[Rfam]
RNA: SAM riboswitch aptamer (S box leader)
Nucleotides: 107
Stems, first nucleotide, its partner, number of pairs: 001107007013042005021031003025078004043070004048066002050062004074099001079096006
Number, partner (000 for none) and nucleotide at each position: 001107u002106u003105c004104u005103u006102a007101u008000g009000u010000u011000g012000a013042g014041a015040a016039g017038u018000g019000g020000a021031g022030g023029g024000a025078c026077g027076g028075g029023c030022c031021c032000u033000a034000u035000g036000a037000a038017a039016c040015u041014u042013c043070g044069g045068c046067a047000a048066c049065c050062u051061c052060g053059u054000a055000u056000g057000a058000g059053a060052c061051g062050a063000a064000a065049g066048g067046u068045g069044c070043c071000a072000a073000a074099u075028c076027c077026u078025g079096c080095a081094g082093g083092u084091g085000a086000a087000g088000a089000a090000a091084c092083a093082c094081c095080u096079g097000a098000a099074a100000g101007a102006u103005a104004a105003g106002a107001g